[Rfam]
RNA sequence: GAAGUGCGCCAGACCGCCGCUGGUACUAGCCGAAAGGCCAACGCUUGCGUUGGGUCGAAAGACCGUACUGGAGGAACGUCCGGACUGCAUAGGGCGGCGUAGCAGCUAACAGCUGUCCACCGUGAGGUGAGGAUCAGAGCAACAGAGACGAGUCUGGCAGGAGUGCCGCAAGGCAGACCAACCAGGGUGAAACGGGCAAUCUCUACGCGCAGCAAUACCAAGUAGGCACACGUUGACGGGGCCCCCGGAGUGUGCGGGUAGGUAGCACCGAGCCAUCAGGCGACUGAUGGCCAAGAUUAAUGGCGGUCACAUGGCGGGCAACCGUUGUGCACAGAAUCCGGCUUAUCGGCGCACUUCACAC
Numbered sequence: 001g002a003a004g005u006g007c008g009c010c011a012g013a014c015c016g017c018c019g020c021u022g023g024u025a026c027u028a029g030c031c032g033a034a035a036g037g038c039c040a041a042c043g044c045u046u047g048c049g050u051u052g053g054g055u056c057g058a059a060a061g062a063c064c065g066u067a068c069u070g071g072a073g074g075a076a077c078g079u080c081c082g083g084a085c086u087g088c089a090u091a092g093g094g095c096g097g098c099g100u101a102g103c104a105g106c107u108a109a110c111a112g113c114u115g116u117c118c119a120c121c122g123u124g125a126g127g128u129g130a131g132g133a134u135c136a137g138a139g140c141a142a143c144a145g146a147g148a149c150g151a152g153u154c155u156g157g158c159a160g161g162a163g164u165g166c167c168g169c170a171a172g173g174c175a176g177a178c179c180a181a182c183c184a185g186g187g188u189g190a191a192a193c194g195g196g197c198a199a200u201c202u203c204u205a206c207g208c209g210c211a212g213c214a215a216u217a218c219c220a221a222g223u224a225g226g227c228a229c230a231c232g233u234u235g236a237c238g239g240g241g242c243c244c245c246c247g248g249a250g251u252g253u254g255c256g257g258g259u260a261g262g263u264a265g266c267a268c269c270g271a272g273c274c275a276u277c278a279g280g281c282g283a284c285u286g287a288u289g290g291c292c293a294a295g296a297u298u299a300a301u302g303g304c305g306g307u308c309a310c311a312u313g314g315c316g317g318g319c320a321a322c323c324g325u326u327g328u329g330c331a332c333a334g335a336a337u338c339c340g341g342c343u344u345a346u347c348g349g350c351g352c353a354c355u356u357c358a359c360a361c
Stems, first nucleotide, its partner, number of pairs: 001357010011346001012308007020071007076344001078342001080341005085212004092244004097208005102116005117131001118129004132203002137201002139197002154173002156167004181188002216264004226255006237247003272291008
This 361-nucleotide RNA from Comamonas testosteroni belongs to the Rfam family "Bacterial RNase P class A". Its Rfam clan is "RNaseP clan". It is annotated as a ribozyme. The base pairs follow the family's consensus structure, which is taken from published work.